[Rfam]
RNA sequence: AAAUUCAAUAGGCAAACCUAUGGAAACAUAGGGACGCAAAGCUAUAGGGACUAAGGUUUUAAAACUAUGUCAGCCAGUUGCCAAA
Number, nucleotide and partner (000 for none) at each position: 001a000002a000003a000004u000005u000006c000007a000008a000009u000010a000011g000012g037013c036014a000015a000016a000017c032018c031019u030020a029021u028022g027023g000024a000025a000026a000027c022028a021029u020030a019031g018032g017033g000034a000035c000036g013037c012038a000039a000040a079041g078042c077043u076044a000045u000046a000047g075048g074049g071050a070051c069052u000053a000054a000055g000056g065057u064058u063059u000060u000061a000062a000063a058064a057065c056066u000067a000068u000069g051070u050071c049072a000073g000074c048075c047076a043077g042078u041079u040080g000081c000082c000083a000084a000085a000
A member of the RNA family "c-di-GMP-I riboswitch aptamer" from Terrisporobacter othiniensis, 85 nucleotides long. The match comes from Rfam's covariance-model search (85 bits). NCBI's taxonomy places the organism under Bacteria, Bacillota, Clostridia, Peptostreptococcales, Terrisporobacter. Its family is annotated with cyclic-di-GMP binding in the Gene Ontology. The base pairs follow the family's consensus structure, which is taken from published work. GEMM was predicted in a large-scale screen for bacterial structured RNA regulatory elements.